[Rfam]
RNA: mir-87 microRNA precursor family
RNA sequence: CAUCGGAACGCUUGAACUUUGUUUUUCCUGUGUAAUAUACUAGGUGAGCAAAGAUUCAGGUGUGUCGGUAG
Numbered sequence: 001c002a003u004c005g006g007a008a009c010g011c012u013u014g015a016a017c018u019u020u021g022u023u024u025u026u027c028c029u030g031u032g033u034a035a036u037a038u039a040c041u042a043g044g045u046g047a048g049c050a051a052a053g054a055u056u057c058a059g060g061u062g063u064g065u066c067g068g069u070a071g
Base pairs, nucleotide, nucleotide: 002069003068004067005066006065009062010061011060012059013058014057015056017053018052019051020050022048023047024046027044028043029042